[Rfam]
RNA sequence: ACUCCGCACACACCCACCCGUAUGCGGCAGGAGCGGGGGACCCACAGGUAGGACGCCUGUUCCGGUCUCCGGAACGGGCUUGGGGUAAAGCCGCGACCAGCGCGCGGCCGGGCAUCUCCAGCCCGCACCCGACAGCUCACCUCGCAGGCGCCGGAGAGGAAUU
Number, nucleotide and partner (000 for none) at each position: 001a000002c000003u032004c031005c030006g000007c000008a000009c000010a000011c000012a000013c000014c000015c000016a000017c000018c000019c000020g000021u000022a000023u000024g000025c000026g000027g000028c000029a000030g005031g004032a003033g145034c144035g143036g142037g141038g140039g000040a000041c000042c000043c082044a081045c000046a000047g000048g000049u000050a000051g000052g000053a000054c000055g000056c000057c000058u000059g000060u000061u000062c000063c000064g000065g000066u000067c000068u000069c000070c000071g000072g000073a000074a000075c000076g000077g000078g000079c000080u000081u044082g043083g130084g129085g128086u000087a000088a000089a000090g000091c107092c106093g105094c104095g000096a000097c000098c000099a000100g000101c000102g000103c000104g094105c093106g092107g091108c000109c000110g124111g123112g122113c121114a000115u000116c000117u000118c000119c000120a000121g113122c112123c111124c110125g000126c000127a000128c085129c084130c083131g000132a000133c000134a000135g000136c000137u000138c000139a000140c038141c037142u036143c035144g034145c033146a000147g000148g000149c000150g000151c000152c000153g000154g000155a000156g000157a000158g000159g000160a000161a000162u000163u000

Notes
c-di-AMP riboswitch aptamer (ydaO/yuaA leader): a 163-nucleotide RNA from Streptomyces sp. 3213.3. The pairing is the family consensus, mapped onto this sequence. This family represents a conserved RNA structure found upstream of the ydaO and yuaA genes in Bacillus subtilis and related genes in other bacteria. The match comes from Rfam's covariance-model search (57 bits). Its family is annotated with regulation of gene expression and cyclic-di-AMP binding in the Gene Ontology.